[Rfam]
RNA: c-di-GMP-I riboswitch aptamer
Organism: Eubacterium oxidoreducens
RNA sequence: AAGAAAAAUCGGCAAACUUAGGGAAACCUAAGGACGCAAAACUAUAGGGCCUGUUAUAUGGUAGCCAGUUGCAAUU
Numbered sequence: 001a002a003g004a005a006a007a008a009u010c011g012g013c014a015a016a017c018u019u020a021g022g023g024a025a026a027c028c029u030a031a032g033g034a035c036g037c038a039a040a041a042c043u044a045u046a047g048g049g050c051c052u053g054u055u056a057u058a059u060g061g062u063a064g065c066c067a068g069u070u071g072c073a074a075u076u
Base pairs, nucleotide, nucleotide: 012037013036017032018031019030020029021028022027040070041069042068043067047066048065049062050061051060